[Rfam]
RNA sequence: GGGUCACUCCUUCCAUACCCGUAUCAGGGAAGGAACUCGGUCCUGCUGGUGGGUGCAGCUGCACCUUAGACGUUCGUCGUCAUAAGUGGGACGUGAGGAGAGGUUGAAUGCCUC
Numbered sequence: 001g002g003g004u005c006a007c008u009c010c011u012u013c014c015a016u017a018c019c020c021g022u023a024u025c026a027g028g029g030a031a032g033g034a035a036c037u038c039g040g041u042c043c044u045g046c047u048g049g050u051g052g053g054u055g056c057a058g059c060u061g062c063a064c065c066u067u068a069g070a071c072g073u074u075c076g077u078c079g080u081c082a083u084a085a086g087u088g089g090g091a092c093g094u095g096a097g098g099a100g101a102g103g104u105u106g107a108a109u110g111c112c113u114c
Base pairs, nucleotide, nucleotide: 001020002019003018004017008034009033010032011031012030013029036097037096038095039094040092041091042090043089044088045087046086047085051066052065053064054063055062056061069081070080071079072078100114101113102112103111104110
RNA: epsC RNA
Organism: Alkalicoccus urumqiensis